[Rfam]
Source information
The record is a 98-nucleotide RNA, which matches "DUF3800-V RNA" in Rfam.
RNA sequence: UAGUUAUGAGCGAUAAGCCCACUGCGGGUUGUCCAUGGUGUUCCCUUCCGGAUGGUUGGCAAAGCCAUGGCGCAACAAGCCCACAGGGCGCGUCUCUU
Dot-bracket structure: .((..(...((..............(((((.((((((((....((..((....))..))....)))))))......)))))).......)).)..)).